[Rfam]
RNA sequence: AACGACCGGCCGGACACCUGCGUGUUCGGCCCACAAGUGGAGGCUCCGAUCUCCCACCUGCUCCGUCCCACGGGACGGCGGGUCCGGUCAGGUGACCGCCAUCGUUCCGUACGGGCGAUGGAGUCACCCGAAAGCGCGCCCCGCGACAUCGCGGCGGUGCUCCGGACGUAUUGGAGCCCCGCUGGUGAUCGUCCGGGGCAUUUUUG
Numbered sequence: 001a002a003c004g005a006c007c008g009g010c011c012g013g014a015c016a017c018c019u020g021c022g023u024g025u026u027c028g029g030c031c032c033a034c035a036a037g038u039g040g041a042g043g044c045u046c047c048g049a050u051c052u053c054c055c056a057c058c059u060g061c062u063c064c065g066u067c068c069c070a071c072g073g074g075a076c077g078g079c080g081g082g083u084c085c086g087g088u089c090a091g092g093u094g095a096c097c098g099c100c101a102u103c104g105u106u107c108c109g110u111a112c113g114g115g116c117g118a119u120g121g122a123g124u125c126a127c128c129c130g131a132a133a134g135c136g137c138g139c140c141c142c143g144c145g146a147c148a149u150c151g152c153g154g155c156g157g158u159g160c161u162c163c164g165g166a167c168g169u170a171u172u173g174g175a176g177c178c179c180c181g182c183u184g185g186u187g188a189u190c191g192u193c194c195g196g197g198g199c200a201u202u203u204u205u206g
Stems, first nucleotide, its partner, number of pairs: 004089006012027002030082003034060002037057004041052002063078006091128005099121008138199006144191003150187003153183005159177005
RNA: Streptomyces RNA 1601